[Rfam]
Shown here is a 54-nucleotide sequence from Pelagerythrobacter rhizovicinus, a member of the family "terC RNA".
RNA sequence: CUUGCGGGCCGGGCCCCUCUGACGAGACCGAUCUCGUGAUGUCGGACCGCAUCG
Numbered sequence: 001c002u003u004g005c006g007g008g009c010c011g012g013g014c015c016c017c018u019c020u021g022a023c024g025a026g027a028c029c030g031a032u033c034u035c036g037u038g039a040u041g042u043c044g045g046a047c048c049g050c051a052u053c054g
Stems, first nucleotide, its partner, number of pairs: 006048002009045004022037006
The match comes from Rfam's covariance-model search (60 bits). The family has 129 seed sequences and 1,112 matches in Rfam 15.1. Lineage of the source: Bacteria > Pseudomonadota > Sphingomonadales > Erythrobacteraceae > Pelagerythrobacter.